RNA sequence: ACACAGGGAAGGAGGUGGUCUGAUAGUGAUUUCUCAUCGGACAUGUGAGGUGACCAUCCGUUAGCAGCUGACCGUGUGGCAUUCGUGUCGCCGGAGGUGGGUCACCACCUCAUCAGCGCCGACGAAUACCAGGUGGUCACCCGGCCCCCGCAUCCCGACCUGGUCCGGUCGGCACGAGGCUCGUAUGAGCGAUGCGGGGGCCGUUCCAU
Numbered sequence: 001a002c003a004c005a006g007g008g009a010a011g012g013a014g015g016u017g018g019u020c021u022g023a024u025a026g027u028g029a030u031u032u033c034u035c036a037u038c039g040g041a042c043a044u045g046u047g048a049g050g051u052g053a054c055c056a057u058c059c060g061u062u063a064g065c066a067g068c069u070g071a072c073c074g075u076g077u078g079g080c081a082u083u084c085g086u087g088u089c090g091c092c093g094g095a096g097g098u099g100g101g102u103c104a105c106c107a108c109c110u111c112a113u114c115a116g117c118g119c120c121g122a123c124g125a126a127u128a129c130c131a132g133g134u135g136g137u138c139a140c141c142c143g144g145c146c147c148c149c150g151c152a153u154c155c156c157g158a159c160c161u162g163g164u165c166c167g168g169u170c171g172g173c174a175c176g177a178g179g180c181u182c183g184u185a186u187g188a189g190c191g192a193u194g195c196g197g198g199g200g201c202c203g204u205u206c207c208a209u
Stems, first nucleotide, its partner, number of pairs: 014058006059124004064119002067117004142203013155172006

This 209-nucleotide RNA from Gordonia sp. YY1 belongs to the Rfam family "Actinobacteria sRNA Ms_IGR-5". The match comes from Rfam's covariance-model search (122 bits). The organism belongs to Gordonia, within Bacteria.